RNA sequence: UCACUGCCAGGAUGGGCUCAGGCCGGCACCUGGACGUCGUUAGCCGGAAAGUGCGACGAAGACGAAAACACCGGCAGCC
Numbered sequence: 001u002c003a004c005u006g007c008c009a010g011g012a013u014g015g016g017c018u019c020a021g022g023c024c025g026g027c028a029c030c031u032g033g034a035c036g037u038c039g040u041u042a043g044c045c046g047g048a049a050a051g052u053g054c055g056a057c058g059a060a061g062a063c064g065a066a067a068a069c070a071c072c073g074g075c076a077g078c079c
Stems, first nucleotide, its partner, number of pairs: 002014002007033005015024003035058005043075005
A member of the RNA family "Proteo-phage-1 RNA", 79 nucleotides long. Rfam's curators put it in the seed alignment. Pairs were carried over by alignment from the consensus structure, which is taken from published work.